[Rfam]
Shown here is a 254-nucleotide sequence from Streptomyces sp. NWU49, a member of the family "Streptomyces sRNA 4677". Pairs were carried over by alignment from the consensus structure. From the family's description: Located in the intergenic region between anti-sigma factor SCO4677 gene and a putative regulatory protein gene SCO4676. scr4677 expression requires the SCO4677 activity and scr4677 sRNA itself seem to affect the levels of the SCO4676-associated transcripts. The source organism's lineage runs through Bacteria, Bacillati, Actinomycetes, Streptomycetaceae and Streptomyces. The family has 12 seed sequences and 563 matches in Rfam 15.1. The match comes from Rfam's covariance-model search (83 bits).
RNA sequence: GGCGGGGCUGCGGGCGGUAAAAGACCCAAGAACCAAGGGUGAAAACCAACCAACCUCACCAAACCUCGCGUUGAUCACUCGAGCGGGUGAAACGCGUCGAACGGGCUGGCGCGGCGGUGGUGCGGGCGGGCAGUCUCGGCACGAGAGCGGCCGAAGCAACUCGGCCUCCCCACAAGCCCCUACAUGCAUCGGCCCCCGCCGGGACUGCCAUCCCAGGGCGAGGGCCUGACCAACGAGGAAGCAGGACCUUCCCC
Numbered sequence: 001g002g003c004g005g006g007g008c009u010g011c012g013g014g015c016g017g018u019a020a021a022a023g024a025c026c027c028a029a030g031a032a033c034c035a036a037g038g039g040u041g042a043a044a045a046c047c048a049a050c051c052a053a054c055c056u057c058a059c060c061a062a063a064c065c066u067c068g069c070g071u072u073g074a075u076c077a078c079u080c081g082a083g084c085g086g087g088u089g090a091a092a093c094g095c096g097u098c099g100a101a102c103g104g105g106c107u108g109g110c111g112c113g114g115c116g117g118u119g120g121u122g123c124g125g126g127c128g129g130g131c132a133g134u135c136u137c138g139g140c141a142c143g144a145g146a147g148c149g150g151c152c153g154a155a156g157c158a159a160c161u162c163g164g165c166c167u168c169c170c171c172a173c174a175a176g177c178c179c180c181u182a183c184a185u186g187c188a189u190c191g192g193c194c195c196c197c198g199c200c201g202g203g204a205c206u207g208c209c210a211u212c213c214c215a216g217g218g219c220g221a222g223g224g225c226c227u228g229a230c231c232a233a234c235g236a237g238g239a240a241g242c243a244g245g246a247c248c249u250u251c252c253c254c
Stems, first nucleotide, its partner, number of pairs: 007234001009232002016066001075090006105165005191226005197220003201214004237252005